[Rfam]
The record is a 49-nucleotide sequence from Taxus chinensis, which matches "Guanidine-II riboswitch aptamer (mini-ykkC)" in Rfam. The family has 72 seed sequences and 1,589 matches in Rfam 15.1. The base pairs follow the family's consensus structure, which is taken from published work. The literature on the family includes a 2007 paper in Nucleic Acids Res by Weinberg et al., "Identification of 22 candidate structured RNAs in bacteria using the CMfinder comparative genomics pipeline".
RNA sequence: CACCCGGGACGUCCCGGGUGCGUUCCUAGUUUUUUAGGGGACGUCCCCU
Numbered sequence: 001c002a003c004c005c006g007g008g009a010c011g012u013c014c015c016g017g018g019u020g021c022g023u024u025c026c027u028a029g030u031u032u033u034u035u036a037g038g039g040g041a042c043g044u045c046c047c048c049u
Base pairs, nucleotide, nucleotide: 001020002019003018004017005016006015007014008013036049037048038047039046040045